[Rfam]
Rfam assigns this 85-nucleotide RNA from Gouania willdenowi to the family "mir-135 microRNA precursor family".
The organism belongs to Gouania, within Eukaryota.
A search with the family's covariance model found it, with a score of 66 bits.
Pairs were carried over by alignment from the consensus structure, which was predicted with PFOLD.
Its family is annotated with gene silencing by miRNA and RISC complex in the Gene Ontology.
RNA sequence: UUGCCGUCGUGUCUUAUGGCUUUUUAUUCCUACGUGAUUGGUAGAUGGGUUCAUGUAGGAGUAAAAGCCACUAAACACGCGGCGA
Numbered sequence: 001u002u003g004c005c006g007u008c009g010u011g012u013c014u015u016a017u018g019g020c021u022u023u024u025u026a027u028u029c030c031u032a033c034g035u036g037a038u039u040g041g042u043a044g045a046u047g048g049g050u051u052c053a054u055g056u057a058g059g060a061g062u063a064a065a066a067g068c069c070a071c072u073a074a075a076c077a078c079g080c081g082g083c084g085a
Stems, first nucleotide, its partner, number of pairs: 002084006009078004014073001017070007026062012